[Rfam]
RNA sequence: CUCUGGUUCUUAUAGAUCCAGGGCGAUAAGGAG
Numbered sequence: 001c002u003c004u005g006g007u008u009c010u011u012a013u014a015g016a017u018c019c020a021g022g023g024c025g026a027u028a029a030g031g032a033g
Stems, first nucleotide, its partner, number of pairs: 001023005008016003

Rfam assigns this 33-nucleotide sequence to the family "L31-Firmicutes ribosomal protein leader". The sequence is in the family's curated seed alignment. Clan: Ribosomal Protein L31 Leader clan.